[Rfam]
RNA sequence: CGGGUAGUAUCUUUCGGGAACUGCACCUAUAUGUAUAAAUUUUAAAAAACAUAUAUUUCCGCUUGGAACCAAAAUUGGACCGAGACGGGAGG
Numbered sequence: 001c002g003g004g005u006a007g008u009a010u011c012u013u014u015c016g017g018g019a020a021c022u023g024c025a026c027c028u029a030u031a032u033g034u035a036u037a038a039a040u041u042u043u044a045a046a047a048a049a050c051a052u053a054u055a056u057u058u059c060c061g062c063u064u065g066g067a068a069c070c071a072a073a074a075u076u077g078g079a080c081c082g083a084g085a086c087g088g089g090a091g092g
Stems, first nucleotide, its partner, number of pairs: 002027002004024005010019002059088003062084005069078002
RNA: pan motif
Organism: Desulforamulus aquiferis